Small nucleolar RNA SNORD27: a 70-nucleotide RNA from Camelus dromedarius. The organism belongs to Camelus, within Eukaryota. Rfam classes the family as a C/D-box small nucleolar RNA. The literature on the family includes a 1996 paper in Nature by Tycowski et al., "A mammalian gene with introns instead of exons generating stable RNA products". Rfam links the family to the GO terms RNA processing and nucleolus.
[Rfam]
RNA sequence: ACUUCAUGAUGAAUGUAAAAUGACAAGCAUAUGCCUGAACUCAAGUGAUGUCAUCUUACUACUGAGAAGU
Numbered sequence: 001a002c003u004u005c006a007u008g009a010u011g012a013a014u015g016u017a018a019a020a021u022g023a024c025a026a027g028c029a030u031a032u033g034c035c036u037g038a039a040c041u042c043a044a045g046u047g048a049u050g051u052c053a054u055c056u057u058a059c060u061a062c063u064g065a066g067a068a069g070u
Base pairs, nucleotide, nucleotide: 001070002069003067004066